Description
transfer-messenger RNA: a 372-nucleotide RNA from Nocardia ignorata. A search with the family's covariance model found it, with a score of 144 bits. Clan: tRNA clan. The base pairs follow the family's consensus structure, which is taken from published work. Bacterial tmRNA, also known as 10Sa RNA or SsrA, is named for its dual tRNA and mRNA-like properties. Its role is to liberate the mRNA from a stalled ribosome. The organism belongs to Nocardia, within Bacteria.
RNA sequence: GGGGCUGAACGGUUUCGACUGCGUACGUUGAUUCAGGGGAAGCGUGUCGGUGCAGGCAAGAGACCACCGUAAGCGUCGUUGCAACCAAUUAAGCGCCGAUUCCAAUCAGCGCGACUACGCUCUCGCUGCCUAAGUAGCGAAGCGUGUCUGUCAGUCCGGGUUCGUCCCUCGACCCGGGUACUGGCAUCAGCUAGAGGGAAUCACCGUCCAGGUCGGUCGCGGAUCUGGGCGGGACAUCGAACAGCGACUGGGAUCGUCAUCCGAGCUUGUUCGCGAGACCCGGAGAUCCGAGUAGAGACAUAGCGAACUGCACACGGAGAAGCCCUGAAGACGCGGCGGAGGACCCGGGUUCGAUUCCCGGCAGCUCCACUC
Numbered sequence: 001g002g003g004g005c006u007g008a009a010c011g012g013u014u015u016c017g018a019c020u021g022c023g024u025a026c027g028u029u030g031a032u033u034c035a036g037g038g039g040a041a042g043c044g045u046g047u048c049g050g051u052g053c054a055g056g057c058a059a060g061a062g063a064c065c066a067c068c069g070u071a072a073g074c075g076u077c078g079u080u081g082c083a084a085c086c087a088a089u090u091a092a093g094c095g096c097c098g099a100u101u102c103c104a105a106u107c108a109g110c111g112c113g114a115c116u117a118c119g120c121u122c123u124c125g126c127u128g129c130c131u132a133a134g135u136a137g138c139g140a141a142g143c144g145u146g147u148c149u150g151u152c153a154g155u156c157c158g159g160g161u162u163c164g165u166c167c168c169u170c171g172a173c174c175c176g177g178g179u180a181c182u183g184g185c186a187u188c189a190g191c192u193a194g195a196g197g198g199a200a201u202c203a204c205c206g207u208c209c210a211g212g213u214c215g216g217u218c219g220c221g222g223a224u225c226u227g228g229g230c231g232g233g234a235c236a237u238c239g240a241a242c243a244g245c246g247a248c249u250g251g252g253a254u255c256g257u258c259a260u261c262c263g264a265g266c267u268u269g270u271u272c273g274c275g276a277g278a279c280c281c282g283g284a285g286a287u288c289c290g291a292g293u294a295g296a297g298a299c300a301u302a303g304c305g306a307a308c309u310g311c312a313c314a315c316g317g318a319g320a321a322g323c324c325c326u327g328a329a330g331a332c333g334c335g336g337c338g339g340a341g342g343a344c345c346c347g348g349g350u351u352c353g354a355u356u357c358c359c360g361g362c363a364g365c366u367c368c369a370c371u372c
Stems, first nucleotide, its partner, number of pairs: 001368007019341002022338003032329007043316005048069005056082004123140007149186006155178008165200001167198002170196001204232009215249006251289005257283002266277002269308004345361005